The record is a 72-nucleotide sequence from Alligator sinensis, which matches "tRNA" in Rfam. By type it is a transfer RNA. For this family Rfam cites "The tertiary structure of tRNA and the development of the genetic code" (Hou, Trends Biochem Sci, 1993). Taxonomically the source falls in Alligator (Eukaryota, Metazoa, Euteleostomi, Alligatorinae). Pairs were carried over by alignment from the consensus structure, which is taken from published work. The family is grouped with related families in Rfam's "tRNA clan".
[Rfam]
RNA sequence: GGGAGCAUAGCUCAGUGGUAGAGCAUUUGACUGCAGAUCAAUGGGUCCCCAGUUCAAAUCUGGGUGUUCCCU
Numbered sequence: 001g002g003g004a005g006c007a008u009a010g011c012u013c014a015g016u017g018g019u020a021g022a023g024c025a026u027u028u029g030a031c032u033g034c035a036g037a038u039c040a041a042u043g044g045g046u047c048c049c050c051a052g053u054u055c056a057a058a059u060c061u062g063g064g065u066g067u068u069c070c071c072u
Base pairs, nucleotide, nucleotide: 001071002070003069004068005067006066007065010024011023012022013021027041028040029039030038048064049063050062051061052060
Dot-bracket structure: (((((((..((((.......))))..((((.......))))......(((((.......)))))))))))).